[Rfam]
RNA sequence: UCAUCAGGUGGGAUAAUCCUUACCUGUUCCUCCUUUGGAGGAACAUGGUGGAACAGACAGAACAUGAUGAUUGGAGAUGCAUGAUACAUGAUUAACGUCUCUGUGUAAUCAGGACUUGCAACAUCCUGAUUGCUCCUAUCUGAU
Numbered sequence: 001u002c003a004u005c006a007g008g009u010g011g012g013a014u015a016a017u018c019c020u021u022a023c024c025u026g027u028u029c030c031u032c033c034u035u036u037g038g039a040g041g042a043a044c045a046u047g048g049u050g051g052a053a054c055a056g057a058c059a060g061a062a063c064a065u066g067a068u069g070a071u072u073g074g075a076g077a078u079g080c081a082u083g084a085u086a087c088a089u090g091a092u093u094a095a096c097g098u099c100u101c102u103g104u105g106u107a108a109u110c111a112g113g114a115c116u117u118g119c120a121a122c123a124u125c126c127u128g129a130u131u132g133c134u135c136c137u138a139u140c141u142g143a144u
Base pairs, nucleotide, nucleotide: 024056025055026054028052029051030050032048033047083101084100086098087097089094105133106132107131108130109129110128111127112126113125
Record summary:
Shown here is a 144-nucleotide sequence from Callithrix jacchus, a member of the family "U8 small nucleolar RNA". The family's consensus secondary structure is taken from published work. For this family Rfam cites "The sequence of the 5' end of the U8 small nucleolar RNA is critical for 5.8S and 28S rRNA maturation" (Peculis, Mol Cell Biol, 1997). Rfam classes the family as a C/D-box small nucleolar RNA. Rfam 15.1 lists 1,597 matches to the family in 457 species.